mir-2774 microRNA precursor family: a 67-nucleotide RNA from Bombyx mori. A reference for the family is Liu et al. (2010), "MicroRNAs of Bombyx mori identified by Solexa sequencing", BMC Genomics. Pairs were carried over by alignment from the consensus structure, which was predicted with RNAalifold.
RNA sequence: GCCGCAUUUGGACCGUCGGUCUACCGAGAAAUAUCACCCACUCGGUGGAAGAUUUUCCUUCUGUCGU
Numbered sequence: 001g002c003c004g005c006a007u008u009u010g011g012a013c014c015g016u017c018g019g020u021c022u023a024c025c026g027a028g029a030a031a032u033a034u035c036a037c038c039c040a041c042u043c044g045g046u047g048g049a050a051g052a053u054u055u056u057c058c059u060u061c062u063g064u065c066g067u
Stems, first nucleotide, its partner, number of pairs: 004064003010058003015053003020049009